[Rfam]
RNA sequence: ACGGAGUAUCCCCGAAAAUCCGGAAUAGAGUAGGGA
Numbered sequence: 001a002c003g004g005a006g007u008a009u010c011c012c013c014g015a016a017a018a019u020c021c022g023g024a025a026u027a028g029a030g031u032a033g034g035g036a
Stems, first nucleotide, its partner, number of pairs: 002022004011035003
Dot-bracket structure: .((((.....[[[.....))))..........]]].